malK-I RNA: a 177-nucleotide RNA sequence. Rfam classes the family as a cis-regulatory element. The family's consensus secondary structure is taken from published work.
RNA sequence: UACAGCGCUGCCGUAUUACUCCACACAUUAAUGCGGCGGCGUUAAAUAAAGGAGGAUAUAGAUCCGUAUGGCUUGCGGUGUAGCAGUGUGGAGACCUGCUAUAAUGCGUACGGUGGAGUAUCUGUACGCGAGGCGUGUUUUGCGGAGGCUGAUGCGCCAGAGCCAAAGAAUAUGGCA
Numbered sequence: 001u002a003c004a005g006c007g008c009u010g011c012c013g014u015a016u017u018a019c020u021c022c023a024c025a026c027a028u029u030a031a032u033g034c035g036g037c038g039g040c041g042u043u044a045a046a047u048a049a050a051g052g053a054g055g056a057u058a059u060a061g062a063u064c065c066g067u068a069u070g071g072c073u074u075g076c077g078g079u080g081u082a083g084c085a086g087u088g089u090g091g092a093g094a095c096c097u098g099c100u101a102u103a104a105u106g107c108g109u110a111c112g113g114u115g116g117a118g119u120a121u122c123u124g125u126a127c128g129c130g131a132g133g134c135g136u137g138u139u140u141u142g143c144g145g146a147g148g149c150u151g152a153u154g155c156g157c158c159a160g161a162g163c164c165a166a167a168g169a170a171u172a173u174g175g176c177a
Stems, first nucleotide, its partner, number of pairs: 006041013064078004069165006079103008088095002106129008132158008142149002